[Rfam]
RNA: Molybdenum/Tungsten riboswitch aptamer (Moco RNA motif)
Organism: Aminithiophilus ramosus
RNA sequence: ACGAUCAAUAACCUCCGAGCCUGGUGACCUAAAGCUUCGGCCAUGGUCUUCAGGCCGGGGUGUCUUCGGAAACGAGGGCACCUCCCGCGUUCGGAAAGGAGGAAGGGACGUCUUGCC
Numbered sequence: 001a002c003g004a005u006c007a008a009u010a011a012c013c014u015c016c017g018a019g020c021c022u023g024g025u026g027a028c029c030u031a032a033a034g035c036u037u038c039g040g041c042c043a044u045g046g047u048c049u050u051c052a053g054g055c056c057g058g059g060g061u062g063u064c065u066u067c068g069g070a071a072a073c074g075a076g077g078g079c080a081c082c083u084c085c086c087g088c089g090u091u092c093g094g095a096a097a098g099g100a101g102g103a104a105g106g107g108a109c110g111u112c113u114u115g116c117c
Stems, first nucleotide, its partner, number of pairs: 003111001012102005019055006026048004034041002058083011084094002